[Rfam]
The record is a 62-nucleotide sequence from Cebus imitator, which matches "U7 small nuclear RNA" in Rfam.

RNA sequence: AAGGAUUAUGGCUCUUUUAGAAUUUGUACAGCUGGUUUUCUGGUUUUUGCCAGAAAGCCCCU
Numbered sequence: 001a002a003g004g005a006u007u008a009u010g011g012c013u014c015u016u017u018u019a020g021a022a023u024u025u026g027u028a029c030a031g032c033u034g035g036u037u038u039u040c041u042g043g044u045u046u047u048u049g050c051c052a053g054a055a056a057g058c059c060c061c062u
Stems, first nucleotide, its partner, number of pairs: 034059011
Dot-bracket structure: .................................(((((((((((....)))))))))))...
A search with the family's covariance model found it, with a score of 62 bits. Pairs were carried over by alignment from the consensus structure, which was predicted with PFOLD.